[Rfam]
RNA: ZMP/ZTP riboswitch aptamer (pfl RNA motif)
RNA sequence: CUGGGCGCACACGACUGGCGCAGGUGGGUGACCACCAGGGAGUGACUGGAUCGUGGAUCGAUCGCCUGGGUCCACAUC
Numbered sequence: 001c002u003g004g005g006c007g008c009a010c011a012c013g014a015c016u017g018g019c020g021c022a023g024g025u026g027g028g029u030g031a032c033c034a035c036c037a038g039g040g041a042g043u044g045a046c047u048g049g050a051u052c053g054u055g056g057a058u059c060g061a062u063c064g065c066c067u068g069g070g071u072c073c074a075c076a077u078c
Stems, first nucleotide, its partner, number of pairs: 003047002010044003015039002017066004024035004055073005